[Rfam]
Shown here is a 71-nucleotide RNA from Ameiurus melas, a member of the family "Small nucleolar RNA SNORD58". The family's RNA type in Rfam is C/D-box small nucleolar RNA. The source organism's lineage runs through Eukaryota, Otomorpha, Ostariophysi, Ictaluridae and Ameiurus. On this family, see Kiss-Laszlo et al., Cell 1996: "Site-specific ribose methylation of preribosomal RNA: a novel function for small nucleolar RNAs". Its family is annotated with nucleolus and RNA processing in the Gene Ontology. snoRNA U58 is found in introns 1, 3 and 6 of the ribosomal protein RPL17 gene in humans.
RNA sequence: GUACGAUGAUGACGAUCUUAGGACACCUUUGGAGGUCACGACCAGUGAAACGAAUUCAUAUCCUGAGUGCG
Number, nucleotide and partner (000 for none) at each position: 001g070002u069003a068004c067005g000006a000007u000008g000009a000010u000011g000012a000013c000014g000015a000016u000017c000018u000019u000020a000021g000022g000023a000024c000025a000026c000027c000028u000029u000030u000031g000032g000033a000034g000035g000036u000037c000038a000039c000040g000041a000042c000043c000044a000045g000046u000047g000048a000049a000050a000051c000052g000053a000054a000055u000056u000057c000058a000059u000060a000061u000062c000063c000064u000065g000066a000067g004068u003069g002070c001071g000